[Rfam]
U1 spliceosomal RNA: a 157-nucleotide RNA sequence from Enhydra lutris. The family's consensus secondary structure is taken from published work. It is annotated as a spliceosomal small nuclear RNA. NCBI's taxonomy places the organism under Eukaryota, Metazoa, Dipnotetrapodomorpha, Theria, Enhydra lutris.
RNA sequence: AUACUUACCUGGCAGGGGAGAUACCAUGAUCACGAAGGUGGUUUUCCCAGGGUGAGGCUUAUCCAUUGCACUCCGGAUGUGCUGACCCCUGCAAUUUCCCCAAAAGAAAGACAAUUAUCAUAUGAUCUCCCUAAUAAGAGGAAGUUAGUUGCGAGGC
Numbered sequence: 001a002u003a004c005u006u007a008c009c010u011g012g013c014a015g016g017g018g019a020g021a022u023a024c025c026a027u028g029a030u031c032a033c034g035a036a037g038g039u040g041g042u043u044u045u046c047c048c049a050g051g052g053u054g055a056g057g058c059u060u061a062u063c064c065a066u067u068g069c070a071c072u073c074c075g076g077a078u079g080u081g082c083u084g085a086c087c088c089c090u091g092c093a094a095u096u097u098c099c100c101c102a103a104a105a106g107a108a109a110g111a112c113a114a115u116u117a118u119c120a121u122a123u124g125a126u127c128u129c130c131c132u133a134a135u136a137a138g139a140g141g142a143a144g145u146u147a148g149u150u151g152c153g154a155g156g157c
Stems, first nucleotide, its partner, number of pairs: 012152004016048006023042005049090004054086001056083003060079005093146002095143003100138001